[Rfam]
RNA sequence: GGUCAAUGAUGAAAAAUAGCCAAAUCUGAGCACCAGUAGAUCAGUUGAUCUAAUUGGUGAAUGAUUGGUGUACAGACCAGAGA
Numbered sequence: 001g002g003u004c005a006a007u008g009a010u011g012a013a014a015a016a017u018a019g020c021c022a023a024a025u026c027u028g029a030g031c032a033c034c035a036g037u038a039g040a041u042c043a044g045u046u047g048a049u050c051u052a053a054u055u056g057g058u059g060a061a062u063g064a065u066u067g068g069u070g071u072a073c074a075g076a077c078c079a080g081a082g083a
Stems, first nucleotide, its partner, number of pairs: 031059004038051004
RNA: Small nucleolar RNA U2-19
Organism: Callorhinchus milii